Rfam assigns this 66-nucleotide RNA sequence to the family "Cyano-1 RNA". Pairs were carried over by alignment from the consensus structure, which is taken from published work.
RNA sequence: AUGUGUGUAGGAGGAUUGAUUUAUUUCAGUGGAAACAAGGAAACACUUGAUAUAAAUCAAUUUUAA
Number, nucleotide and partner (000 for none) at each position: 001a000002u000003g000004u000005g000006u000007g000008u000009a000010g000011g000012a000013g000014g062015a061016u060017u059018g058019a000020u000021u055022u054023a000024u000025u000026u050027c049028a048029g046030u045031g044032g000033a000034a000035a000036c000037a000038a000039g000040g000041a000042a000043a000044c031045a030046c029047u000048u028049g027050a026051u000052a000053u000054a022055a021056a000057u000058c018059a017060a016061u015062u014063u000064u000065a000066a000